[Rfam]
RNA sequence: GGAUGGUCCCCUCGCAGCGAUAGGUAGUGAACCCCGCCAGGCCCGGAAGGGAGCAACGGUAAUUACCGACUCGGGUGCCGGGGUGUGGCUGUCCGGG
Numbered sequence: 001g002g003a004u005g006g007u008c009c010c011c012u013c014g015c016a017g018c019g020a021u022a023g024g025u026a027g028u029g030a031a032c033c034c035c036g037c038c039a040g041g042c043c044c045g046g047a048a049g050g051g052a053g054c055a056a057c058g059g060u061a062a063u064u065a066c067c068g069a070c071u072c073g074g075g076u077g078c079c080g081g082g083g084u085g086u087g088g089c090u091g092u093c094c095g096g097g
Stems, first nucleotide, its partner, number of pairs: 004091005010083005015075001018073003023067006034059003042051003
Background:
A member of the RNA family "Bacterial small signal recognition particle RNA" from Luminiphilus syltensis, 97 nucleotides long. The signal recognition particle (SRP) is a universally conserved ribonucleoprotein involved in the co-translational targeting of proteins to membranes. The literature on the family includes a 2002 paper in Nucleic Acids Res by Regalia et al., "Prediction of signal recognition particle RNA genes". It is annotated as a non-coding RNA gene.